A member of the RNA family "mir-7552 microRNA precursor family" from Cyprinodon variegatus, 63 nucleotides long. The family has 4 seed sequences and 220 matches in Rfam 15.1. Its family is annotated with RISC complex and miRNA-mediated post-transcriptional gene silencing in the Gene Ontology. Taxonomically the source falls in Cyprinodon (Eukaryota, Osteoglossocephalai, Ovalentaria, Cyprinodontini).
RNA sequence: UUACAAUUAAAGGAUAUUUCUCGUGGUUGUCAUACAAACGGAAAUACCUUUUAAUUGUUUGGU
Numbered sequence: 001u002u003a004c005a006a007u008u009a010a011a012g013g014a015u016a017u018u019u020c021u022c023g024u025g026g027u028u029g030u031c032a033u034a035c036a037a038a039c040g041g042a043a044a045u046a047c048c049u050u051u052u053a054a055u056u057g058u059u060u061g062g063u
Stems, first nucleotide, its partner, number of pairs: 003058008012049002015046007024036002